[Rfam]
RNA sequence: GGUCCAAAUUUGAAGUAGGGUAGAUUAGUAGGAUCAGCUAACCAUACUAAUCUACUACUUCAAGUUUGUACCC
Dot-bracket structure: (((.(((((.(((((((..((((.((((((.(.(......).).)))))).))))))))))).))))).))).

Rfam assigns this 73-nucleotide RNA sequence from Haemonchus placei to the family "mir-5928 microRNA precursor family". It scores 70 bits against the family's covariance model. Taxonomically the source falls in Haemonchus (Eukaryota, Ecdysozoa, Strongyloidea, Trichostrongylidae).